[Rfam]
Shown here is a 76-nucleotide RNA sequence from Cuscuta europaea, a member of the family "Small nucleolar RNA R12". By type it is a C/D-box small nucleolar RNA. The family has 9 seed sequences and 992 matches in Rfam 15.1. For this family Rfam cites "The high diversity of snoRNAs in plants: identification and comparative study of 120 snoRNA genes from Oryza sativa" (Chen et al., Nucleic Acids Res, 2003). Taxonomically the source falls in Cuscuta subgen. Cuscuta (Eukaryota, Gunneridae, lamiids, Cuscuteae).
RNA sequence: UAGAGGAUGAUAAAAAAUCAGAUGGAUUCCCAAUGAAUUGAAUCUUGAUUACCACAACCAGCUACUUCUGACUCCG
Numbered sequence: 001u002a003g004a005g006g007a008u009g010a011u012a013a014a015a016a017a018u019c020a021g022a023u024g025g026a027u028u029c030c031c032a033a034u035g036a037a038u039u040g041a042a043u044c045u046u047g048a049u050u051a052c053c054a055c056a057a058c059c060a061g062c063u064a065c066u067u068c069u070g071a072c073u074c075c076g
Base pairs, nucleotide, nucleotide: 001076003074004073005072
About this RNA:
About the family: snoR12 is a C/D box small nucleolar RNA, which acts as a methylation guide for 25S ribosomal RNA in plants. snoR12 has been alternatively named snoZ44 in Arabidopsis and snoZ131 in rice. A search with the family's covariance model found it, with a score of 60 bits. Rfam links the family to the GO terms nucleolus and RNA processing.